[Rfam]
RNA: mir-124 microRNA precursor family
RNA sequence: CGCUCCUCGCGUUCACUGUUGGGCCUAUAUGUAGUUAAUAUAAAUCAUAAGGCACGCGGUGAAUGCCAAGAUCG
Numbered sequence: 001c002g003c004u005c006c007u008c009g010c011g012u013u014c015a016c017u018g019u020u021g022g023g024c025c026u027a028u029a030u031g032u033a034g035u036u037a038a039u040a041u042a043a044a045u046c047a048u049a050a051g052g053c054a055c056g057c058g059g060u061g062a063a064u065g066c067c068a069a070g071a072u073c074g
Base pairs, nucleotide, nucleotide: 004071005070009066010065011064012063013062014061015060016059018057019056024052025051026050028049029048030047031046